Description
Clostridiales-1 RNA: a 162-nucleotide sequence from Clostridiales bacterium CHKCI001. The family's RNA type in Rfam is small RNA. Taxonomically the source falls in Eubacteriales (Bacteria, Bacillati, Bacillota, Clostridia).
RNA sequence: UAUAAAAAAUGUCGUCAAUGACCAAACAGGCAGGGGAUUUAUACCUUGUACUGGAUGGACAUUCGACGUCCUAACCUGUAUGAGCAAGUAAGGCAUUUACCUAGAUUGCGAAUACGAGCUGCGAUGUCGAGAGUGCACAACACGAAGACAUCGGCUUUUAUA
Numbered sequence: 001u002a003u004a005a006a007a008a009a010u011g012u013c014g015u016c017a018a019u020g021a022c023c024a025a026a027c028a029g030g031c032a033g034g035g036g037a038u039u040u041a042u043a044c045c046u047u048g049u050a051c052u053g054g055a056u057g058g059a060c061a062u063u064c065g066a067c068g069u070c071c072u073a074a075c076c077u078g079u080a081u082g083a084g085c086a087a088g089u090a091a092g093g094c095a096u097u098u099a100c101c102u103a104g105a106u107u108g109c110g111a112a113u114a115c116g117a118g119c120u121g122c123g124a125u126g127u128c129g130a131g132a133g134u135g136c137a138c139a140a141c142a143c144g145a146a147g148a149c150a151u152c153g154g155c156u157u158u159u160a161u162a
Stems, first nucleotide, its partner, number of pairs: 001162007011070001013068002017063004022058003027053003033046003037042001075118001077116005084109004091102003122153007133143003